Notes
Shown here is a 129-nucleotide RNA sequence from Protea cynaroides, a member of the family "Small nucleolar RNA snoR74". Rfam 15.1 lists 1,404 matches to the family in 223 species. A search with the family's covariance model found it, with a score of 96 bits. Pairs were carried over by alignment from the consensus structure, which was predicted with WAR. NCBI's taxonomy places the organism under Eukaryota, Viridiplantae, Spermatophyta, Mesangiospermae, Protea. For this family Rfam cites "Experimental RNomics: identification of 140 candidates for small non-messenger RNAs in the plant Arabidopsis thaliana" (Marker et al., Curr Biol, 2002). Rfam classes the family as an H/ACA-box small nucleolar RNA.
[Rfam]
RNA sequence: GAAAAAGCAGGGGCUUGUUGCCUCUAUGAGCGGGCCUUUCGUAAAUUUCAGGGAAAUCAUUUACAUUGUUUUCGGGUGAACCUCUGUUAUUUUUUGUUGACAGAAGUUUCAGUAAAUGAUGGUACAUAA
Numbered sequence: 001g002a003a004a005a006a007g008c009a010g011g012g013g014c015u016u017g018u019u020g021c022c023u024c025u026a027u028g029a030g031c032g033g034g035c036c037u038u039u040c041g042u043a044a045a046u047u048u049c050a051g052g053g054a055a056a057u058c059a060u061u062u063a064c065a066u067u068g069u070u071u072u073c074g075g076g077u078g079a080a081c082c083u084c085u086g087u088u089a090u091u092u093u094u095u096g097u098u099g100a101c102a103g104a105a106g107u108u109u110c111a112g113u114a115a116a117u118g119a120u121g122g123u124a125c126a127u128a129a
Stems, first nucleotide, its partner, number of pairs: 005048003011037002014034004064121007077111004082106002